The record is a 55-nucleotide RNA sequence from Lathraea squamaria, which matches "Plastid-psbA-3 3UTR RNA" in Rfam. Clan: Plastid-psbA 3UTR RNA clan. Rfam's curators write: Plastid psbA-3 is a non-coding RNA (ncRNA) present in plastids. It was identified in inverted repeat sequences in the 3 prime untranslate region (3UTR) of photosystem II quinone-binding protein (psbA). By type it is a cis-regulatory element. The sequence is in the family's curated seed alignment.
[Rfam]
RNA sequence: AAGGAGAAAUAACCCCGCUUGAUAGACCAAGAAAGCGGUUAUUGCUCCUUUGUUU
Dot-bracket structure: ((((((.((((((....((((......))))......)))))).)))))).....
Numbered sequence: 001a002a003g004g005a006g007a008a009a010u011a012a013c014c015c016c017g018c019u020u021g022a023u024a025g026a027c028c029a030a031g032a033a034a035g036c037g038g039u040u041a042u043u044g045c046u047c048c049u050u051u052g053u054u055u
Stems, first nucleotide, its partner, number of pairs: 001050006008043006018031004